[Rfam]
Background: This 85-nucleotide RNA sequence from Drosophila pseudoobscura belongs to the Rfam family "mir-995 microRNA precursor family". Rfam's curators put it in the seed alignment. For this family Rfam cites "Systematic discovery and characterization of fly microRNAs using 12 Drosophila genomes" (Stark et al., Genome Res, 2007). Its family is annotated with miRNA-mediated post-transcriptional gene silencing and RISC complex in the Gene Ontology.
RNA sequence: GCUGCACAACGCAGCCCGGAUUCUGUGUGUGCUGCGCUGUGUUCUUAAAAGCCGUAGCACCACAUGAUUCGGCUGCGUGGUCAGC
Numbered sequence: 001g002c003u004g005c006a007c008a009a010c011g012c013a014g015c016c017c018g019g020a021u022u023c024u025g026u027g028u029g030u031g032c033u034g035c036g037c038u039g040u041g042u043u044c045u046u047a048a049a050a051g052c053c054g055u056a057g058c059a060c061c062a063c064a065u066g067a068u069u070c071g072g073c074u075g076c077g078u079g080g081u082c083a084g085c
Stems, first nucleotide, its partner, number of pairs: 003084001006081002009078008018070005024064004029060008